[Rfam]
RNA sequence: AGGGCAGGGGGGUGUCCGCGUCCCACCGCGGUUCCUGUCCUCAUCCGGUCGCGCAUCCCGCGCGGCCGUCUGGUUGUCGCUCGGGGGGUGAUGGCCG
Numbered sequence: 001a002g003g004g005c006a007g008g009g010g011g012g013u014g015u016c017c018g019c020g021u022c023c024c025a026c027c028g029c030g031g032u033u034c035c036u037g038u039c040c041u042c043a044u045c046c047g048g049u050c051g052c053g054c055a056u057c058c059c060g061c062g063c064g065g066c067c068g069u070c071u072g073g074u075u076g077u078c079g080c081u082c083g084g085g086g087g088g089u090g091a092u093g094g095c096c097g
Base pairs, nucleotide, nucleotide: 001041002040003039004038005037006036007035008034014033016031017030018029019028020027047067048066049065050064051063052062053061054060
Dot-bracket structure: ((((((((.....(.(((((......))))).))))))))).....((((((((.....))))))))..............................